Rfam assigns this 72-nucleotide RNA from Geotrypetes seraphini to the family "Small nucleolar RNA SNORD73".
The base pairs follow the family's consensus structure, which was predicted with PFOLD.
Rfam links the family to the GO terms nucleolus and RNA processing.
The organism belongs to Geotrypetes, within Eukaryota.
On this family, see Rebane et al., Gene 1998: "A novel snoRNA (U73) is encoded within the introns of the human and mouse ribosomal protein S3a genes".
A search with the family's covariance model found it, with a score of 75 bits.
Rfam classes the family as a C/D-box small nucleolar RNA.
RNA sequence: AAUGAAUGAUGACAAAAUGUUUCGGUCCCAAAUGAGACUCAGUGAUUACUUCUUUGAGAUCGUUCUGACAUU
Numbered sequence: 001a002a003u004g005a006a007u008g009a010u011g012a013c014a015a016a017a018u019g020u021u022u023c024g025g026u027c028c029c030a031a032a033u034g035a036g037a038c039u040c041a042g043u044g045a046u047u048a049c050u051u052c053u054u055u056g057a058g059a060u061c062g063u064u065c066u067g068a069c070a071u072u
Stems, first nucleotide, its partner, number of pairs: 001072004